[Rfam]
RNA: Selenocysteine transfer RNA
Organism: Microvirgula aerodenitrificans
RNA sequence: GGUAGGAAGGCGUCCCCGGUGGGGCGACCGGUCUUCAAAACCGAGUUGGGGCCGCCAGCGGUCCCGGGUGGGUUCGACUCCCAUUUCCUACC
Dot-bracket structure: (((((((((.((((((....))))))((((((.......)))).)).(((((........)))))...((((.......)))))))))))))